[Rfam]
RNA sequence: GGGGUCGAUUUUGGAUUCGACGGGAUUCUCGAAACCCAAGGUGCAUGCCGAGGUGCGGUUGGCCUCGUAAAAAAGCCGCAUUUAAAUAGUCGCAAACGACGAAACUUACGCAAUCGCCGCCUAAUAAGCGGUAAGAUCGCCUACCUCCAAACCCCCGCCUAUUGGGUGAGGACCAAGGUAGUCAAGCCAUAUAGGAUCGCGCGGCGUCUUCUCCAGUAGACAAAGCGUUAAACUCAAUCUGGAUCGCCCAGGUGAAGCCUGCCGCUCGGCGUCACUGUGGGUUAACUAAAAGAGCCGGCUAAGCAUGUAGGACCGAGGAUGUAGGUUUUUCGGACGGGGGUUCAACUCCCCCCGACUCCACCA
Numbered sequence: 001g002g003g004g005u006c007g008a009u010u011u012u013g014g015a016u017u018c019g020a021c022g023g024g025a026u027u028c029u030c031g032a033a034a035c036c037c038a039a040g041g042u043g044c045a046u047g048c049c050g051a052g053g054u055g056c057g058g059u060u061g062g063c064c065u066c067g068u069a070a071a072a073a074a075g076c077c078g079c080a081u082u083u084a085a086a087u088a089g090u091c092g093c094a095a096a097c098g099a100c101g102a103a104a105c106u107u108a109c110g111c112a113a114u115c116g117c118c119g120c121c122u123a124a125u126a127a128g129c130g131g132u133a134a135g136a137u138c139g140c141c142u143a144c145c146u147c148c149a150a151a152c153c154c155c156c157g158c159c160u161a162u163u164g165g166g167u168g169a170g171g172a173c174c175a176a177g178g179u180a181g182u183c184a185a186g187c188c189a190u191a192u193a194g195g196a197u198c199g200c201g202c203g204g205c206g207u208c209u210u211c212u213c214c215a216g217u218a219g220a221c222a223a224a225g226c227g228u229u230a231a232a233c234u235c236a237a238u239c240u241g242g243a244u245c246g247c248c249c250a251g252g253u254g255a256a257g258c259c260u261g262c263c264g265c266u267c268g269g270c271g272u273c274a275c276u277g278u279g280g281g282u283u284a285a286c287u288a289a290a291a292g293a294g295c296c297g298g299c300u301a302a303g304c305a306u307g308u309a310g311g312a313c314c315g316a317g318g319a320u321g322u323a324g325g326u327u328u329u330u331c332g333g334a335c336g337g338g339g340g341u342u343c344a345a346c347u348c349c350c351c352c353c354g355a356c357u358c359c360a361c362c363a
Stems, first nucleotide, its partner, number of pairs: 001359007021332005028325002034320001036318002040314003044307005049067005054080007114134001116132005141181005146172003151167004158195005200227003212242002246282005252276001253274002257270003261299004265294003336352005

The record is a 363-nucleotide sequence from Ferrimonas sediminicola, which matches "transfer-messenger RNA" in Rfam. For this family Rfam cites "BRUCE: a program for the detection of transfer-messenger RNA genes in nucleotide sequences" (Laslett et al., Nucleic Acids Res, 2002). Pairs were carried over by alignment from the consensus structure, which is taken from published work. A search with the family's covariance model found it, with a score of 235 bits. From the family's description: Bacterial tmRNA, also known as 10Sa RNA or SsrA, is named for its dual tRNA and mRNA-like properties. Its role is to liberate the mRNA from a stalled ribosome. To accomplish this part of the tmRNA is used as a reading frame that ends in a translation stop signal. Gene Ontology term of the family: RNA catabolic process. Rfam classes the family as a non-coding RNA gene.